The record is a 117-nucleotide sequence from Antribacter soli, which matches "SAM riboswitch aptamer (S box leader)" in Rfam. Lineage of the source: Bacteria > Bacillati > Actinomycetes > Promicromonosporaceae > Antribacter. The literature on the family includes a 2012 paper in RNA by Baird et al., "YbxF and YlxQ are bacterial homologs of L7Ae and bind K-turns but not K-loops". A search with the family's covariance model found it, with a score of 51 bits.
RNA sequence: CAACCAUCCAGAGCGGUCGAGAGUCCUGGCUCGUCGACACCGCAGCAACCCGCCGACGGAAGCCUCCCGAGGACAAAGGUGCUAACGCCAGGUCCGAUGGAGCAGACACCAUGGUCG
Dot-bracket structure: (.(((((.....(((((...(((..[[[[)))......)))))((((.((.(.(.................).)...))))))...(]]]](((.(......).))).).))))).)